Shown here is a 70-nucleotide RNA from Histoplasma capsulatum, a member of the family "bZIP non canonical Hac1/Xbp1 intron". Rfam's curators write: bZIP intron RNA is a non-canonical intron that was first reported in HAC1 gene in yeast and XBP1 gene in Metazoa. The family's consensus secondary structure was predicted with RNAfold. It is annotated as a small RNA. On this family, see Iracane et al., mSphere 2018: "Identification of an Exceptionally Long Intron in the HAC1 Gene of Candida parapsilosis".
RNA sequence: CGAUUCCUCCGACCUGACACAACAUCCUGCAGCGAUGUUGUGUGACCUGCAGUGUCAGUCGGAGGCGUCG
Numbered sequence: 001c002g003a004u005u006c007c008u009c010c011g012a013c014c015u016g017a018c019a020c021a022a023c024a025u026c027c028u029g030c031a032g033c034g035a036u037g038u039u040g041u042g043u044g045a046c047c048u049g050c051a052g053u054g055u056c057a058g059u060c061g062g063a064g065g066c067g068u069c070g
Base pairs, nucleotide, nucleotide: 001070002069003068004067006065007064009062010061011060012059013058021039022038023037024036025035026034043057044056045055046054
Rfam's curators put it in the seed alignment.